The family of this 102-nucleotide sequence from Heyndrickxia oleronia is "Purine riboswitch aptamer".
Taxonomically the source falls in Heyndrickxia (Bacteria, Bacillati, Bacilli, Caryophanales).
From the family's description: Riboswitches are metabolite binding domains within certain messenger RNAs that serve as precision sensors for their corresponding targets.
Gene Ontology term of the family: purine nucleobase biosynthetic process.
It scores 87 bits against the family's covariance model.
RNA sequence: ACUAUUAAUAAAAUAGCACUUCAUAUAAUUUUGGUAAUAAGGUCCAGAAGUCUCUACUAAAUCACCGUAAAUGAUUUAACUAUGAAGGCAGUACUAUUCUAU
Numbered sequence: 001a002c003u004a005u006u007a008a009u010a011a012a013a014u015a016g017c018a019c020u021u022c023a024u025a026u027a028a029u030u031u032u033g034g035u036a037a038u039a040a041g042g043u044c045c046a047g048a049a050g051u052c053u054c055u056a057c058u059a060a061a062u063c064a065c066c067g068u069a070a071a072u073g074a075u076u077u078a079a080c081u082a083u084g085a086a087g088g089c090a091g092u093a094c095u096a097u098u099c100u101a102u
Stems, first nucleotide, its partner, number of pairs: 019087007029049006058078007